[Rfam]
RNA sequence: AUUUAAUUAUGAUAAUUUAUUCCUAAACCUUCAAAAGGCGGAAUAAUUUGGAUGUUUGUUAAU
Numbered sequence: 001a002u003u004u005a006a007u008u009a010u011g012a013u014a015a016u017u018u019a020u021u022c023c024u025a026a027a028c029c030u031u032c033a034a035a036a037g038g039c040g041g042a043a044u045a046a047u048u049u050g051g052a053u054g055u056u057u058g059u060u061a062a063u
Base pairs, nucleotide, nucleotide: 001063002062003061005059014049015048017046018045019044020043021042022041023040029037030036031035

Rfam assigns this 63-nucleotide RNA sequence from Stegodyphus mimosarum to the family "Selenocysteine insertion sequence 1". NCBI's taxonomy places the organism under Eukaryota, Eumetazoa, Chelicerata, Araneae, Stegodyphus. Its family is annotated with selenocysteine incorporation in the Gene Ontology. Pairs were carried over by alignment from the consensus structure, which is taken from published work.